[Rfam]
Nucleotides: 105
Stems, first nucleotide, its partner, number of pairs: 007056006015046002020043002022040001023037006057078008080100001082103001086098003
Number, partner (000 for none) and nucleotide at each position: 001000c002000c003000a004000a005000a006000u007056g008055u009054u010053u011052u012051c013000u014000a015046g016045g017000g018000u019000u020043c021042c022040g023037g024036a025035u026034u027033g028032c029000c030000c031000c032028g033027c034026a035025a036024u037023c038000g039000c040022c041000u042021g043020g044000a045016c046015c047000g048000a049000g050000a051012g052011a053010a054009a055008a056007c057078g058077c059076a060075u061074c062073g063072g064071u065000c066000c067000g068000c069000g070000a071064a072063c073062c074061g075060a076059u077058g078057u079000a080100c081000a082103c083000g084000g085000c086098g087097g088096g089000a090000u091000a092000a093000a094000a095000g096088c097087c098086c099000g100080g101000g102000a103082g104000a105000a
Annotation
Rfam assigns this 105-nucleotide RNA from Cohnella zeiphila to the family "Guanidine-I riboswitch aptamer". A reference for the family is Barrick et al. (2004), "New RNA motifs suggest an expanded scope for riboswitches in bacterial genetic control", Proc Natl Acad Sci U S A. Its family is annotated with regulation of gene expression in the Gene Ontology. The base pairs follow the family's consensus structure. This family represents a conserved RNA structure found upstream of the ykkC and yxkD genes in Bacillus subtilis and related genes in other bacteria. The function of this family is unclear although it has been suggested that it may function to switch on efflux pumps and detoxification systems in response to harmful environmental molecules.